[Rfam]
RNA sequence: AGAAAUACCUAGCUGAUACGGGGUAAAGCCGAAACCUCUAGAAGGUUAACAUAGGCUCUCCAGCUCCUACUCCUACUCAAUACGUGCCCGUCGUACAGCACGGUAACAUGUCUCUCAAUUAUCCAAGCUUACGGGUUGCUUGAGUAUACGGGAAACCCAACCCCUUGCGCGGAUGAGUUGUAUGGCUAAAUUGAGAGGG
Number, nucleotide and partner (000 for none) at each position: 001a000002g000003a000004a000005a000006u000007a000008c000009c000010u100011a000012g000013c000014u000015g000016a000017u000018a000019c000020g067021g066022g064023g000024u062025a000026a000027a059028g000029c055030c054031g000032a000033a000034a000035c000036c000037u000038c000039u000040a000041g000042a000043a000044g000045g000046u000047u000048a000049a000050c000051a000052u000053a000054g030055g029056c000057u000058c000059u027060c000061c000062a024063g000064c022065u000066c021067c020068u000069a000070c000071u199072c198073c197074u196075a000076c195077u194078c193079a192080a191081u190082a094083c093084g092085u000086g000087c102088c000089c000090g000091u000092c084093g083094u082095a000096c000097a000098g000099c000100a010101c000102g087103g000104u000105a000106a000107c184108a183109u182110g181111u180112c000113u000114c177115u176116c175117a000118a000119u000120u000121a174122u173123c172124c171125a000126a000127g000128c000129u160130u159131a000132c000133g158134g157135g156136u155137u000138g000139c000140u000141u000142g000143a000144g000145u000146a000147u000148a000149c000150g000151g000152g000153a000154a000155a136156c135157c134158c133159a130160a129161c000162c169163c000164c000165u000166u000167g000168c000169g162170c000171g124172g123173a122174u121175g116176a115177g114178u000179u000180g111181u110182a109183u108184g107185g000186c000187u000188a000189a000190a081191u080192u079193g078194a077195g076196a074197g073198g072199g071

This 199-nucleotide RNA from Anopheles gambiae belongs to the Rfam family "drz-agam-2-2 ribozyme". A search with the family's covariance model found it, with a score of 133 bits. A reference for the family is Webb et al. (2009), "Widespread occurrence of self-cleaving ribozymes", Science.